[Rfam]
RNA sequence: CUUACAGAGAUUAUUUGGCAUUCUGUCCACCUCCUACUACCAAAAUUCGAUAACCCAAUACAAAAACAAAAUCUUUUAUACUAUCUGUGUCUCUCGAUCUUACGAUAUGGAGGUGGACAUGCUGCCAAAUGUCUUCUGUUGG
Dot-bracket structure: ..............((((((...(((((((((((..........................................................................)))))))))))...))))))..............
Rfam assigns this 142-nucleotide RNA sequence from Olea europaea to the family "MIR394 microRNA precursor family". It scores 70 bits against the family's covariance model. Gene Ontology terms of the family: RISC complex and miRNA-mediated post-transcriptional gene silencing.